[Rfam]
RNA sequence: CGAGUAAGACAGGCAGUCGCGUAAGCUGUGCCGAAAGGCCGCUUAUGAGGAAAGUCCGGGCUCCACAGGGCAAGAAUAACGGGUAACGCCCGCCGAAGGCGACUUCAGGAAAAGUGCAACAGAAAUAAACCGCCAAACCGGGUCAAACCGCUUUGGUAAGGAUGGAAAGGUGAGGUAAGAGCUCACCCGAUGGCUCGAGAGUGCCCAUCGCUGUAAACUCUAUUCGGAGCAACACCGGUAUGGGAGCUAUGGUUUGCCCGACCGCUCCCGGGGUGGCUGGACCGUGUUGGCAACAACGCGGCAAGAUAGAUGACUGUCAGAUACAGAACCCGGCUUAUAGUCUCACUCGUUCU
Numbered sequence: 001c002g003a004g005u006a007a008g009a010c011a012g013g014c015a016g017u018c019g020c021g022u023a024a025g026c027u028g029u030g031c032c033g034a035a036a037g038g039c040c041g042c043u044u045a046u047g048a049g050g051a052a053a054g055u056c057c058g059g060g061c062u063c064c065a066c067a068g069g070g071c072a073a074g075a076a077u078a079a080c081g082g083g084u085a086a087c088g089c090c091c092g093c094c095g096a097a098g099g100c101g102a103c104u105u106c107a108g109g110a111a112a113a114g115u116g117c118a119a120c121a122g123a124a125a126u127a128a129a130c131c132g133c134c135a136a137a138c139c140g141g142g143u144c145a146a147a148c149c150g151c152u153u154u155g156g157u158a159a160g161g162a163u164g165g166a167a168a169g170g171u172g173a174g175g176u177a178a179g180a181g182c183u184c185a186c187c188c189g190a191u192g193g194c195u196c197g198a199g200a201g202u203g204c205c206c207a208u209c210g211c212u213g214u215a216a217a218c219u220c221u222a223u224u225c226g227g228a229g230c231a232a233c234a235c236c237g238g239u240a241u242g243g244g245a246g247c248u249a250u251g252g253u254u255u256g257c258c259c260g261a262c263c264g265c266u267c268c269c270g271g272g273g274u275g276g277c278u279g280g281a282c283c284g285u286g287u288u289g290g291c292a293a294c295a296a297c298g299c300g301g302c303a304a305g306a307u308a309g310a311u312g313a314c315u316g317u318c319a320g321a322u323a324c325a326g327a328a329c330c331c332g333g334c335u336u337a338u339a340g341u342c343u344c345a346c347u348c349g350u351u352c353u
Stems, first nucleotide, its partner, number of pairs: 001349005007343004011338001012318007020047007028039001052336003056333005061229004069259002074225005080092004094108001095106004109220002114218002116214003130161002132157006139150002169187006189209005194203001196201001233275004242269006251263004282301008